[Rfam]
RNA sequence: UGUGAUUAUAGAGGUGCAAGUGUUAUGAGUAAGUAUAGUGAGCCGGAAGCAAUGAACUAUACUGAAAGGAAUAGUUGCCGAAACAAAAAAAUUCCUACUUUUUUUGUUGGGCUUGUAUUGAAUAAAUGCAAGACUGUCACCAAAAGCUUCUUUUGGGUGGAGUGCUAUCUCACAC
Number, nucleotide and partner (000 for none) at each position: 001u000002g000003u000004g000005a000006u000007u000008a168009u167010a166011g165012a000013g000014g000015u000016g078017c077018a076019a075020g000021u073022g072023u071024u070025a000026u000027g000028a000029g000030u000031a000032a063033g062034u061035a060036u059037a058038g057039u056040g000041a000042g000043c000044c000045g000046g000047a000048a000049g000050c000051a000052a000053u000054g000055a000056a039057c038058u037059a036060u035061a034062c033063u032064g000065a000066a000067a000068g000069g000070a024071a023072u022073a021074g000075u019076u018077g017078c016079c000080g000081a000082a108083a107084c106085a105086a104087a103088a102089a101090a100091a099092u000093u097094c000095c000096u000097a093098c000099u091100u090101u089102u088103u087104u086105u085106g084107u083108u082109g135110g134111g000112c132113u131114u130115g129116u128117a127118u126119u125120g000121a000122a000123u000124a000125a119126a118127u117128g116129c115130a114131a113132g112133a000134c110135u109136g000137u160138c159139a158140c157141c156142a000143a154144a000145a000146g000147c000148u000149u000150c000151u000152u000153u000154u143155g000156g141157g140158u139159g138160g137161a000162g000163u000164g000165c011166u010167a009168u008169c000170u000171c000172a000173c000174a000175c000

The record is a 175-nucleotide sequence from Pelosinus sp. UFO1, which matches "Lysine riboswitch aptamer" in Rfam. Gene Ontology term of the family: lysine biosynthetic process. It scores 126 bits against the family's covariance model.